[Rfam]
The family of this 80-nucleotide sequence from Homo sapiens is "mir-3198 microRNA precursor family". The source organism's lineage runs through Eukaryota, Gnathostomata, Sarcopterygii, Hominidae and Homo. It is one of the family's seed sequences.
RNA sequence: GACUCUGCUCUCACUGUUCACCCAGCACUAGCAGUACCAGAUGGUUCUGUGGAGUCCUGGGGAAUGGAGAGAGCACAGUC
Dot-bracket structure: ((((.(((((((.((((((.(((((.(((.((((.(((....))).))))..))).))))))))))).))))))).))))
Numbered sequence: 001g002a003c004u005c006u007g008c009u010c011u012c013a014c015u016g017u018u019c020a021c022c023c024a025g026c027a028c029u030a031g032c033a034g035u036a037c038c039a040g041a042u043g044g045u046u047c048u049g050u051g052g053a054g055u056c057c058u059g060g061g062g063a064a065u066g067g068a069g070a071g072a073g074c075a076c077a078g079u080c
Stems, first nucleotide, its partner, number of pairs: 001080004006075007014067006021061005027055003031050004036045003